Shown here is a 60-nucleotide RNA sequence from Galemys pyrenaicus, a member of the family "Ma3 gene ribosomal frameshift signal".
The family has 12 seed sequences and 565 matches in Rfam 15.1.
RNA sequence: GGGAAACGAGUUGGGGGCUGGGGCCAUGAGCCACCCCGAGCCCUAGAAAGCACAGGCUCA
Numbered sequence: 001g002g003g004a005a006a007c008g009a010g011u012u013g014g015g016g017g018c019u020g021g022g023g024c025c026a027u028g029a030g031c032c033a034c035c036c037c038g039a040g041c042c043c044u045a046g047a048a049a050g051c052a053c054a055g056g057c058u059c060a
Base pairs, nucleotide, nucleotide: 014044015043016042017041018040019039021037022036023035028059029058030057031056032055
It is annotated as a frameshift element. NCBI's taxonomy places the organism under Eukaryota, Teleostomi, Euteleostomi, Boreoeutheria, Galemys. Pairs were carried over by alignment from the consensus structure, which is taken from published work.